[Rfam]
RNA sequence: GUGGUUCCGGUUCACGCCGCGCCCGCCUCGUUACCACGAGGCAGGCGGGCGACCCGGCGGCC
Dot-bracket structure: ..(((.((((....((((.((((....................))))))))..))))..)))

Rfam assigns this 62-nucleotide RNA sequence to the family "L31-Actinobacteria ribosomal protein leader".
The family's RNA type in Rfam is cis-regulatory leader.
On this family, see Eckert and Weinberg, BMC Microbiol 2020: "Discovery of 20 novel ribosomal leader candidates in bacteria and archaea".